[Rfam]
RNA sequence: GGUCGGGCGUGCGGCUAAUAAAACACCCGCAAGGGAAAUAUGCCCGCCGUCUAUCGCCGGUUUUGAGCGCCCGACCACCCUCUC
Numbered sequence: 001g002g003u004c005g006g007g008c009g010u011g012c013g014g015c016u017a018a019u020a021a022a023a024c025a026c027c028c029g030c031a032a033g034g035g036a037a038a039u040a041u042g043c044c045c046g047c048c049g050u051c052u053a054u055c056g057c058c059g060g061u062u063u064u065g066a067g068c069g070c071c072c073g074a075c076c077a078c079c080c081u082c083u084c
Stems, first nucleotide, its partner, number of pairs: 001076009013044003016040002026035003046061004
RNA: sRNA-Xcc1